[Rfam]
RNA sequence: ACACAUCUCCAGUUUGUGCCUGGAUCAGACGCCAUCAAGGCCGUCCAUUUUUCAAUCAUGCCGUCGAUGGUGUUAGAUUCACGCACAAACUCGUGAUCUGUCU
Numbered sequence: 001a002c003a004c005a006u007c008u009c010c011a012g013u014u015u016g017u018g019c020c021u022g023g024a025u026c027a028g029a030c031g032c033c034a035u036c037a038a039g040g041c042c043g044u045c046c047a048u049u050u051u052u053c054a055a056u057c058a059u060g061c062c063g064u065c066g067a068u069g070g071u072g073u074u075a076g077a078u079u080c081a082c083g084c085a086c087a088a089a090c091u092c093g094u095g096a097u098c099u100g101u102c103u
Stems, first nucleotide, its partner, number of pairs: 001101003005097003011091009021081006028074003032070002043062001045060001
The record is a 103-nucleotide RNA sequence from Theobroma cacao, which matches "MIR403 microRNA precursor family" in Rfam. NCBI's taxonomy places the organism under Eukaryota, Streptophyta, Streptophytina, Mesangiospermae, Theobroma. The match comes from Rfam's covariance-model search (86 bits). On this family, see Mica et al., BMC Genomics 2009: "High throughput approaches reveal splicing of primary microRNA transcripts and tissue specific expression of mature microRNAs in Vitis vinifera".